[Rfam]
Nucleotides: 065
Stems, first nucleotide, its partner, number of pairs: 004061003008057004013052002016049001018046006025039003
Number, partner (000 for none) and nucleotide at each position: 001000c002000a003000u004061a005060c006059u007000a008057c009056c010055c011054u012000a013052a014051c015000u016049u017000g018046a019045g020044c021043a022042u023041u024000g025039a026038c027037u028000g029000u030000u031000g032000a033000a034000u035000u036000c037027a038026g039025u040000a041023a042022g043021u044020g045019c046018u047000a048000a049016a050000u051014g052013u053000u054011g055010g056009g057008g058000c059006a060005g061004u062000u063000u064000u065000u
Shown here is a 65-nucleotide RNA sequence from Cyclopterus lumpus, a member of the family "miR-430 microRNA precursor family".
Gene Ontology terms of the family: RISC complex and miRNA-mediated post-transcriptional gene silencing.
The family's consensus secondary structure was predicted with RNAalifold.
A reference for the family is Giraldez et al. (2005), "MicroRNAs regulate brain morphogenesis in zebrafish", Science.